The record is a 154-nucleotide RNA from Streptomyces sp. SLBN-118, which matches "c-di-AMP riboswitch aptamer (ydaO/yuaA leader)" in Rfam.
Taxonomically the source falls in Streptomyces (Bacteria, Actinomycetota, Actinomycetes, Streptomycetaceae).
The base pairs follow the family's consensus structure.
About the family: This family represents a conserved RNA structure found upstream of the ydaO and yuaA genes in Bacillus subtilis and related genes in other bacteria.

RNA sequence: AUCACCACACCGCCUGGCAGGAGCGGGGGACCCACUUGCGCCGUACGGGACAACACGUACCCGGGCGGCUUGGGGUGAAGCCGUGAGAACCACGGCCGGGCAACUCCAGCCCGAACCCGACAGCUCACCUCGUAGGCGUUCGGAGUACGGAGCC
Numbered sequence: 001a002u003c004a005c006c007a008c009a010c011c012g013c014c015u016g017g018c019a020g021g022a023g024c025g026g027g028g029g030a031c032c033c034a035c036u037u038g039c040g041c042c043g044u045a046c047g048g049g050a051c052a053a054c055a056c057g058u059a060c061c062c063g064g065g066c067g068g069c070u071u072g073g074g075g076u077g078a079a080g081c082c083g084u085g086a087g088a089a090c091c092a093c094g095g096c097c098g099g100g101c102a103a104c105u106c107c108a109g110c111c112c113g114a115a116c117c118c119g120a121c122a123g124c125u126c127a128c129c130u131c132g133u134a135g136g137c138g139u140u141c142g143g144a145g146u147a148c149g150g151a152g153c154c
Base pairs, nucleotide, nucleotide: 002022003021023133024132025131026130027129028128033072034071073118074117075116081095082094083093084092098112099111100110101109